[Rfam]
RNA sequence: GUAGGCUAUGGUGAUAUGUACCCUGUAACCAUCGGAGGCAAGAUCGUGGGUUCUCUUUGUGCUAUUGCUGGUGUGCUUACCAUUGCACUUCCUGUCCCAGUGAUUGUGUCCAAC
Numbered sequence: 001g002u003a004g005g006c007u008a009u010g011g012u013g014a015u016a017u018g019u020a021c022c023c024u025g026u027a028a029c030c031a032u033c034g035g036a037g038g039c040a041a042g043a044u045c046g047u048g049g050g051u052u053c054u055c056u057u058u059g060u061g062c063u064a065u066u067g068c069u070g071g072u073g074u075g076c077u078u079a080c081c082a083u084u085g086c087a088c089u090u091c092c093u094g095u096c097c098c099a100g101u102g103a104u105u106g107u108g109u110c111c112a113a114c
Base pairs, nucleotide, nucleotide: 001114002113004111005110007108008107009106010105011104014101015100018097020095021094037077038076039075040074049063050062051061
Potassium channel RNA editing signal: a 114-nucleotide RNA from Silurus meridionalis.
The family's consensus secondary structure is taken from published work.
The match comes from Rfam's covariance-model search (110 bits).
About the family: This family represents a group of sequences related to the human potassium channel Kv1.1 hairpin element which directs the efficient modification of an adenosine to inosine by an adenosine deaminase acting on RNA (ADAR). The ADAR modification causes an isoleucine/valine recoding event which lies in the ion-conducting pore of the potassium channel. It is thought that this editing event targets the process of fast inactivation and allows a more rapid recovery from inactivation at negative potentials.